The family of this 82-nucleotide RNA sequence is "Small nucleolar RNA Z122". On this family, see Chen et al., Nucleic Acids Res 2003: "The high diversity of snoRNAs in plants: identification and comparative study of 120 snoRNA genes from Oryza sativa".
RNA sequence: UUUGGGAUAUGAUGAUAAUAAUGCUGACAGAGGCACUAGCUGUUCUGAAACAAAAAUAUUUGCACGUCAGUCUGAUCCUAAA
Numbered sequence: 001u002u003u004g005g006g007a008u009a010u011g012a013u014g015a016u017a018a019u020a021a022u023g024c025u026g027a028c029a030g031a032g033g034c035a036c037u038a039g040c041u042g043u044u045c046u047g048a049a050a051c052a053a054a055a056a057u058a059u060u061u062g063c064a065c066g067u068c069a070g071u072c073u074g075a076u077c078c079u080a081a082a
Stems, first nucleotide, its partner, number of pairs: 001082007
Its family is annotated with RNA processing and nucleolus in the Gene Ontology.